[Rfam]
RNA sequence: GUGAGGGUGACCGAGCGUGGGGAGGAAGCGUGGAGCGUAAACCGCGUGCCGAUGAACAAGAACCGGAUAUGAGGCGGUGCCGACCAGGGCGAGCGGGCCAUGAACCGCGAAGCUCUCGUGACCAAGGGGCGGCGGCGUAGAUCCGGCGGUAGUGCGGUGAAGGAAUGCGUUC
Numbered sequence: 001g002u003g004a005g006g007g008u009g010a011c012c013g014a015g016c017g018u019g020g021g022g023a024g025g026a027a028g029c030g031u032g033g034a035g036c037g038u039a040a041a042c043c044g045c046g047u048g049c050c051g052a053u054g055a056a057c058a059a060g061a062a063c064c065g066g067a068u069a070u071g072a073g074g075c076g077g078u079g080c081c082g083a084c085c086a087g088g089g090c091g092a093g094c095g096g097g098c099c100a101u102g103a104a105c106c107g108c109g110a111a112g113c114u115c116u117c118g119u120g121a122c123c124a125a126g127g128g129g130c131g132g133c134g135g136c137g138u139a140g141a142u143c144c145g146g147c148g149g150u151a152g153u154g155c156g157g158u159g160a161a162g163g164a165a166u167g168c169g170u171u172c
Stems, first nucleotide, its partner, number of pairs: 001016002005012002028172001030170003036163001041158006047151005063146006074138003078134005084128001087115004093108004
RNA: Group II catalytic intron D1-D4-3